RNA: mir-71 microRNA precursor family
RNA sequence: GCGCUGUGAAAGACAUGGGUAGUGAGAUGUAAGACAUGGCAACAUCUCACUACCUUGUCUUUCACGGGGCU
Numbered sequence: 001g002c003g004c005u006g007u008g009a010a011a012g013a014c015a016u017g018g019g020u021a022g023u024g025a026g027a028u029g030u031a032a033g034a035c036a037u038g039g040c041a042a043c044a045u046c047u048c049a050c051u052a053c054c055u056u057g058u059c060u061u062u063c064a065c066g067g068g069g070c071u
Base pairs, nucleotide, nucleotide: 008063009062010061011060012059013058014057015056017055018054019053021051022050023049024048025047026046027045028044029043